[Rfam]
RNA sequence: AAAAACAAAACAGCGAACGCUUAUAUAUGUCCAUAAUCCGGUUGGACGUUUCUACCAACUACCCUAAUAGUUGUCUAUAAGCUGCAUGCGAGGAGGU
Numbered sequence: 001a002a003a004a005a006c007a008a009a010a011c012a013g014c015g016a017a018c019g020c021u022u023a024u025a026u027a028u029g030u031c032c033a034u035a036a037u038c039c040g041g042u043u044g045g046a047c048g049u050u051u052c053u054a055c056c057a058a059c060u061a062c063c064c065u066a067a068u069a070g071u072u073g074u075c076u077a078u079a080a081g082c083u084g085c086a087u088g089c090g091a092g093g094a095g096g097u
Base pairs, nucleotide, nucleotide: 019082020081021080022079023078024077025076029047030046031045032044033043056073057072058071059070060069061068